[Rfam]
RNA: c-di-AMP riboswitch aptamer (ydaO/yuaA leader)
Organism: Paenibacillus tyrphae
RNA sequence: CCAAUCACAUCGCUUAAUUUCCUUAACAGGAAAGCGGGGGAACCAAAACAAGCGAUGAGGCGCACACCGAGAGCCGUGCCGCCCCAUCACAUUGGGGUGAAUCUUGAUCGCGCAUGCCGCACAUGCGCCAAGUAGGGCGACUCUCACCGCCCGAACCCGUCAGCUAACCUCGUCAGCGUAGUCGAGAGAGGCA
Numbered sequence: 001c002c003a004a005u006c007a008c009a010u011c012g013c014u015u016a017a018u019u020u021c022c023u024u025a026a027c028a029g030g031a032a033a034g035c036g037g038g039g040g041a042a043c044c045a046a047a048a049c050a051a052g053c054g055a056u057g058a059g060g061c062g063c064a065c066a067c068c069g070a071g072a073g074c075c076g077u078g079c080c081g082c083c084c085c086a087u088c089a090c091a092u093u094g095g096g097g098u099g100a101a102u103c104u105u106g107a108u109c110g111c112g113c114a115u116g117c118c119g120c121a122c123a124u125g126c127g128c129c130a131a132g133u134a135g136g137g138c139g140a141c142u143c144u145c146a147c148c149g150c151c152c153g154a155a156c157c158c159g160u161c162a163g164c165u166a167a168c169c170u171c172g173u174c175a176g177c178g179u180a181g182u183c184g185a186g187a188g189a190g191g192c193a
Base pairs, nucleotide, nucleotide: 011178012177013176014175018033019032020031021030022029034173035172036171037170038169039168044094045093095158096157097156103132104131105130106129135152136151137150138149